[Rfam]
Annotation
A member of the RNA family "Manganese Mn2+ riboswitch aptamer (yybP-ykoY)" from Stutzerimonas stutzeri, 206 nucleotides long. A search with the family's covariance model found it, with a score of 54 bits. About the family: This RNA was originally discovered in E. coli during a large scale screen and was named SraF. The family was later found to exist upstream of related families of protein genes in many bacteria, including the the yybP and ykoK genes in B. subtilis. The specific functions of these proteins are unknown, but this structured RNA element may be involved in their genetic regulation as a riboswitch.

RNA sequence: CAAACUCGCGCCCGUCCUGGGGGAGUAGUCUCCGGCGAGCGCCCUGCUCGCCUGGCAUGCGUCAACAUACUUGGUCCACAGACCAUGGCGCAUGCGACCCGCGCGGCCUGCUUACGCAGCCUCGCCUGGUUUGACAAGACCCAUGACACGCACACCUGACCCGGGGCGGGCAGGCGGUGCGUGUCAUGGUGAUUUCGUCGACCCGC
Numbered sequence: 001c002a003a004a005c006u007c008g009c010g011c012c013c014g015u016c017c018u019g020g021g022g023g024a025g026u027a028g029u030c031u032c033c034g035g036c037g038a039g040c041g042c043c044c045u046g047c048u049c050g051c052c053u054g055g056c057a058u059g060c061g062u063c064a065a066c067a068u069a070c071u072u073g074g075u076c077c078a079c080a081g082a083c084c085a086u087g088g089c090g091c092a093u094g095c096g097a098c099c100c101g102c103g104c105g106g107c108c109u110g111c112u113u114a115c116g117c118a119g120c121c122u123c124g125c126c127u128g129g130u131u132u133g134a135c136a137a138g139a140c141c142c143a144u145g146a147c148a149c150g151c152a153c154a155c156c157u158g159a160c161c162c163g164g165g166g167c168g169g170g171c172a173g174g175c176g177g178u179g180c181g182u183g184u185c186a187u188g189g190u191g192a193u194u195u196c197g198u199c200g201a202c203c204c205g206c
Stems, first nucleotide, its partner, number of pairs: 033054003055095010072085005101206002